[Rfam]
RNA sequence: AUACGUGUAGGGUGGAGAUGUACAACUGUCGGACUGCGUAGCAUAUCGCUUGAUCAAAGACGCCUCAUCUCGUCCGCUACCGCCAGUUGAUUCCUCCUCCUGACUGAGUGCUUUCUGUCACCACAGCAAGCAGGAGACGUCCGUCGCGACCGCAGCCUCUGAUGGCAGGCCGUCGCUCGACAGUGGAACGAUUUACGACCGUUUCUGACGCGCCUGACACCGACCCUGAGAGUCGUGUGUGCCUAACGUGGCUUCCGCUAGCCCCGGAACCCA
Numbered sequence: 001a002u003a004c005g006u007g008u009a010g011g012g013u014g015g016a017g018a019u020g021u022a023c024a025a026c027u028g029u030c031g032g033a034c035u036g037c038g039u040a041g042c043a044u045a046u047c048g049c050u051u052g053a054u055c056a057a058a059g060a061c062g063c064c065u066c067a068u069c070u071c072g073u074c075c076g077c078u079a080c081c082g083c084c085a086g087u088u089g090a091u092u093c094c095u096c097c098u099c100c101u102g103a104c105u106g107a108g109u110g111c112u113u114u115c116u117g118u119c120a121c122c123a124c125a126g127c128a129a130g131c132a133g134g135a136g137a138c139g140u141c142c143g144u145c146g147c148g149a150c151c152g153c154a155g156c157c158u159c160u161g162a163u164g165g166c167a168g169g170c171c172g173u174c175g176c177u178c179g180a181c182a183g184u185g186g187a188a189c190g191a192u193u194u195a196c197g198a199c200c201g202u203u204u205c206u207g208a209c210g211c212g213c214c215u216g217a218c219a220c221c222g223a224c225c226c227u228g229a230g231a232g233u234c235g236u237g238u239g240u241g242c243c244u245a246a247c248g249u250g251g252c253u254u255c256c257g258c259u260a261g262c263c264c265c266g267g268a269a270c271c272c273a
Stems, first nucleotide, its partner, number of pairs: 014097004023089006030082003036077003040050003059074004098135005138210004143181003146176004152170002155166003185205006217240004221235004251271001253269005
rne-II RNA: a 273-nucleotide RNA from Ectopseudomonas mendocina. The source organism's lineage runs through Bacteria, Pseudomonadota, Gammaproteobacteria, Pseudomonadaceae and Ectopseudomonas mendocina. It is annotated as a cis-regulatory element. Pairs were carried over by alignment from the consensus structure, which is taken from published work.